[Rfam]
RNA sequence: UCCGACUCAACACAUUCACGGCAGGAGCGGGGGACCCAGGUAAGUCGCCGCGCCGGUCCUCGGACCGGAGCGGCUCGGGGUGAAGCCGCGCCGUACAGGGCGCGGCCGGGCACCUCCCCGCCCGAACCCGACAGCUCACCCCGCAGGCGUCAGGAGAGGGAUU
Numbered sequence: 001u002c003c004g005a006c007u008c009a010a011c012a013c014a015u016u017c018a019c020g021g022c023a024g025g026a027g028c029g030g031g032g033g034a035c036c037c038a039g040g041u042a043a044g045u046c047g048c049c050g051c052g053c054c055g056g057u058c059c060u061c062g063g064a065c066c067g068g069a070g071c072g073g074c075u076c077g078g079g080g081u082g083a084a085g086c087c088g089c090g091c092c093g094u095a096c097a098g099g100g101c102g103c104g105g106c107c108g109g110g111c112a113c114c115u116c117c118c119c120g121c122c123c124g125a126a127c128c129c130g131a132c133a134g135c136u137c138a139c140c141c142c143g144c145a146g147g148c149g150u151c152a153g154g155a156g157a158g159g160g161a162u163u
Stems, first nucleotide, its partner, number of pairs: 001026003027144006037077001078129003086105006108123004

Background:
Shown here is a 163-nucleotide RNA from Streptomyces griseoviridis, a member of the family "c-di-AMP riboswitch aptamer (ydaO/yuaA leader)".